[Rfam]
Shown here is a 72-nucleotide RNA from Orthoflavivirus denguei, a member of the family "Dengue virus SLA". Clan: Flavivirus 5' UTR clan. From the family's description: Flavivirus stem-loop A (SLA) is a secondary structure present in the 5 prime untranslated (5'-UTR) region of viruses of the genus Flavivirus. On this family, see Lodeiro et al., J Virol 2009: "Structural and functional studies of the promoter element for dengue virus RNA replication".

RNA sequence: AGUUGUUAGUCUACGUGGACCGACAAAGACAGAUUCUUUGAGGGAGCUAAGCUCAACGUAGUUCUAACAGUU
Numbered sequence: 001a002g003u004u005g006u007u008a009g010u011c012u013a014c015g016u017g018g019a020c021c022g023a024c025a026a027a028g029a030c031a032g033a034u035u036c037u038u039u040g041a042g043g044g045a046g047c048u049a050a051g052c053u054c055a056a057c058g059u060a061g062u063u064c065u066a067a068c069a070g071u072u
Stems, first nucleotide, its partner, number of pairs: 001072009011061006020043002027037003044054004
Taxonomically the source falls in Dengue virus (Viruses, Riboviria, Orthornavirae, Flasuviricetes).